About this RNA
Bacterial RNase P class A: a 455-nucleotide sequence from Dokdonella koreensis. From the family's description: Ribonuclease P (RNase P) is a ubiquitous endoribonuclease, found in archaea, bacteria and eukarya as well as chloroplasts and mitochondria. Its best characterised activity is the generation of mature 5'-ends of tRNAs by cleaving the 5'-leader elements of precursor-tRNAs. Cellular RNase Ps are ribonucleoproteins. RNA from bacterial RNase Ps retains its catalytic activity in the absence of the protein subunit, i.e. it is a ribozyme. NCBI's taxonomy places the organism under Bacteria, Pseudomonadati, Pseudomonadota, Rhodanobacteraceae, Dokdonella koreensis.

RNA sequence: GGAGUCAGCCAGACAGUCGCGUCACGCUUGCGUGCCGAGGAAAGUCCGGGCUCCACAGAGCAGGGUGCCAGGUAACGCCUGGGCGGCGCGAGCCGACGGAAAGUGCAACAGAGAAUAGACAGCCGAACGGCAUCCGCGCCCGCCACGGUCCAGCCUCGUGCUGGAAGGGUCGUGACACUAGCGUCGGCGCGCAAGCGCUGGCGCUCAAGUGCUCCCGGCAUCUGCCGUGGUGAAAGCGGAUGUGCGUGGUGAUGGUGAAACGGUGCGGUAAGAGCGCACCGCCUGCGGGGCCAACGCCGCAGGGCACGGCAAACCCCACCCGGAGCAAGACCGAAUAGGGGGGCUAUGGCGCGGCUCGCGUUGCCCCCGGGUUGGUCGCUUGAGCCUUGCGGCGACGCAAGGCCCAGAGGAAUGGCUGUCCACGACAGAACCCGGCUUACCGGCUGACUCCUCUU
Numbered sequence: 001g002g003a004g005u006c007a008g009c010c011a012g013a014c015a016g017u018c019g020c021g022u023c024a025c026g027c028u029u030g031c032g033u034g035c036c037g038a039g040g041a042a043a044g045u046c047c048g049g050g051c052u053c054c055a056c057a058g059a060g061c062a063g064g065g066u067g068c069c070a071g072g073u074a075a076c077g078c079c080u081g082g083g084c085g086g087c088g089c090g091a092g093c094c095g096a097c098g099g100a101a102a103g104u105g106c107a108a109c110a111g112a113g114a115a116u117a118g119a120c121a122g123c124c125g126a127a128c129g130g131c132a133u134c135c136g137c138g139c140c141c142g143c144c145a146c147g148g149u150c151c152a153g154c155c156u157c158g159u160g161c162u163g164g165a166a167g168g169g170u171c172g173u174g175a176c177a178c179u180a181g182c183g184u185c186g187g188c189g190c191g192c193a194a195g196c197g198c199u200g201g202c203g204c205u206c207a208a209g210u211g212c213u214c215c216c217g218g219c220a221u222c223u224g225c226c227g228u229g230g231u232g233a234a235a236g237c238g239g240a241u242g243u244g245c246g247u248g249g250u251g252a253u254g255g256u257g258a259a260a261c262g263g264u265g266c267g268g269u270a271a272g273a274g275c276g277c278a279c280c281g282c283c284u285g286c287g288g289g290g291c292c293a294a295c296g297c298c299g300c301a302g303g304g305c306a307c308g309g310c311a312a313a314c315c316c317c318a319c320c321c322g323g324a325g326c327a328a329g330a331c332c333g334a335a336u337a338g339g340g341g342g343g344c345u346a347u348g349g350c351g352c353g354g355c356u357c358g359c360g361u362u363g364c365c366c367c368c369g370g371g372u373u374g375g376u377c378g379c380u381u382g383a384g385c386c387u388u389g390c391g392g393c394g395a396c397g398c399a400a401g402g403c404c405c406a407g408a409g410g411a412a413u414g415g416c417u418g419u420c421c422a423c424g425a426c427a428g429a430a431c432c433c434g435g436c437u438u439a440c441c442g443g444c445u446g447a448c449u450c451c452u453c454u455u
Stems, first nucleotide, its partner, number of pairs: 001451010012420007020037002023034004042438003046435005051325004058357004063321005068082005083097001084095004098316002103314002105310002120254002122250004128244002262280006281305001282303005287297001289295001329377004339368006348362005384403008